[Rfam]
RNA: Small nucleolar RNA snoR100
Organism: Rhododendron williamsianum
RNA sequence: AAAAGACUGUCGCCCGUCCGAAUUAAAUUUUUUAUCCUUAUACAAUGGACACAUAAAUUGAUUUGGAUCUCUAAGCCUGCCCUCUCUGAUGCCAUUUGGCUUUGAUUUGGGGGUAUGGUUCUACAACAAAACG
Numbered sequence: 001a002a003a004a005g006a007c008u009g010u011c012g013c014c015c016g017u018c019c020g021a022a023u024u025a026a027a028u029u030u031u032u033u034a035u036c037c038u039u040a041u042a043c044a045a046u047g048g049a050c051a052c053a054u055a056a057a058u059u060g061a062u063u064u065g066g067a068u069c070u071c072u073a074a075g076c077c078u079g080c081c082c083u084c085u086c087u088g089a090u091g092c093c094a095u096u097u098g099g100c101u102u103u104g105a106u107u108u109g110g111g112g113g114u115a116u117g118g119u120u121c122u123a124c125a126a127c128a129a130a131a132c133g
Stems, first nucleotide, its partner, number of pairs: 012050001014048004065116001067114003075106001077104001079100003